[Rfam]
RNA sequence: GGUGGCAAGUUUGUGGCUACAGCAGAAGUGCUUAUAGUAUGGCCAUGUCAGAUUCCAGCAAAUCUGUGAAUUCGGCU
Dot-bracket structure: .............(((((..[[[.[[[(((.......))))))))...((((((......))))))....]]].]]]